[Rfam]
RNA: Small nucleolar RNA SNORD26
Organism: Lanius ludovicianus
RNA sequence: CUGCGGGGAUGAUGACCUUGAACUCUCUCUUACUGAUGGGCUGGUGGAGACUUCCCAUGAAUAACCUCUGAGCGGC
Number, nucleotide and partner (000 for none) at each position: 001c075002u074003g073004c072005g000006g000007g000008g000009a000010u000011g000012a000013u000014g000015a000016c000017c000018u000019u000020g000021a000022a000023c000024u000025c000026u000027c000028u000029c000030u000031u000032a000033c000034u000035g000036a000037u000038g000039g000040g000041c000042u000043g000044g000045u000046g000047g000048a000049g000050a000051c000052u000053u000054c000055c000056c000057a000058u000059g000060a000061a000062u000063a000064a000065c000066c000067u000068c000069u000070g000071a000072g004073c003074g002075g001076c000